RNA: FMN riboswitch aptamer (RFN element)
RNA sequence: AAUUGUUCUCAGGGCGGGGUGUAAUUCCCCACCGGCGGUAAGUACUCCUGUACAAGCCCGCGAGCGCCAAGGUUUUCCUUGGGUCAGCAGAUCUGGUUAAAUUCCAGAGCCGACGGUCAUAGUCCGGAUGAGAGAGAAUCACU
Numbered sequence: 001a002a003u004u005g006u007u008c009u010c011a012g013g014g015c016g017g018g019g020u021g022u023a024a025u026u027c028c029c030c031a032c033c034g035g036c037g038g039u040a041a042g043u044a045c046u047c048c049u050g051u052a053c054a055a056g057c058c059c060g061c062g063a064g065c066g067c068c069a070a071g072g073u074u075u076u077c078c079u080u081g082g083g084u085c086a087g088c089a090g091a092u093c094u095g096g097u098u099a100a101a102u103u104c105c106a107g108a109g110c111c112g113a114c115g116g117u118c119a120u121a122g123u124c125c126g127g128a129u130g131a132g133a134g135a136g137a138a139u140c141a142c143u
Base pairs, nucleotide, nucleotide: 003141005139006138007137008136009135010134017029018028019027031123032122033112034111035061036060037059038058056110057109064088065087092108093107094106095105096104114126115125116124